[Rfam]
RNA sequence: GUGAGAGUUUUUAGCCGUGUGGUUACUUCGUUAAACUGAACUCUCUGUGAAUUCUUCCAGCCUUGAAACCACUGGCGCUGUCUCACACACUC
Numbered sequence: 001g002u003g004a005g006a007g008u009u010u011u012u013a014g015c016c017g018u019g020u021g022g023u024u025a026c027u028u029c030g031u032u033a034a035a036c037u038g039a040a041c042u043c044u045c046u047g048u049g050a051a052u053u054c055u056u057c058c059a060g061c062c063u064u065g066a067a068a069c070c071a072c073u074g075g076c077g078c079u080g081u082c083u084c085a086c087a088c089a090c091u092c
Stems, first nucleotide, its partner, number of pairs: 001086005014076004019072004027067004

Description
Rfam assigns this 92-nucleotide RNA sequence from Octopus sinensis to the family "Vault RNA". On this family, see Stadler et al., Mol Biol Evol 2009: "Evolution of Vault RNAs". It scores 37 bits against the family's covariance model. Pairs were carried over by alignment from the consensus structure, which is taken from published work. This family of RNAs are found as part of the enigmatic vault ribonucleoprotein complex. The complex consists of a major vault protein (MVP), two minor vault proteins (VPARP and TEP1), and several small untranslated RNA molecules. It has been suggested that the vault complex is involved in drug resistance.